The record is a 72-nucleotide RNA sequence from Oryctes borbonicus, which matches "mir-124 microRNA precursor family" in Rfam. For this family Rfam cites "Computational identification of Drosophila microRNA genes" (Lai et al., Genome Biol, 2003). The organism belongs to Oryctes, within Eukaryota.
[Rfam]
RNA sequence: UUCUCCUAGUGUUCACUGUUUGCCCUUAUGUGCCUUUGUAAUCCAUAAGGCACGCGGUGAAUGCCAAGAGCA
Numbered sequence: 001u002u003c004u005c006c007u008a009g010u011g012u013u014c015a016c017u018g019u020u021u022g023c024c025c026u027u028a029u030g031u032g033c034c035u036u037u038g039u040a041a042u043c044c045a046u047a048a049g050g051c052a053c054g055c056g057g058u059g060a061a062u063g064c065c066a067a068g069a070g071c072a
Base pairs, nucleotide, nucleotide: 003070004069005068009064010063011062012061013060014059015058016057018055019054024050025049026048027047028046029045030044